[Rfam]
The record is a 99-nucleotide sequence from Arcicella aurantiaca, which matches "TPP riboswitch aptamer (THI element)" in Rfam. Taxonomically the source falls in Arcicella (Bacteria, Pseudomonadati, Bacteroidota, Cytophagales). The match comes from Rfam's covariance-model search (61 bits).
RNA sequence: AAUCACAAAAAGGGGUGCCUCAUAACAACGGGCUGAGAUUAUACCCAUUGAACCUGAUGCAGUAUAAUGCUGUCGAAGGGAAUUUUGUUCAAUCACAAA
Numbered sequence: 001a002a003u004c005a006c007a008a009a010a011a012g013g014g015g016u017g018c019c020u021c022a023u024a025a026c027a028a029c030g031g032g033c034u035g036a037g038a039u040u041a042u043a044c045c046c047a048u049u050g051a052a053c054c055u056g057a058u059g060c061a062g063u064a065u066a067a068u069g070c071u072g073u074c075g076a077a078g079g080g081a082a083u084u085u086u087g088u089u090c091a092a093u094c095a096c097a098a099a
Stems, first nucleotide, its partner, number of pairs: 006087005012046003016041001017033004053079003059073004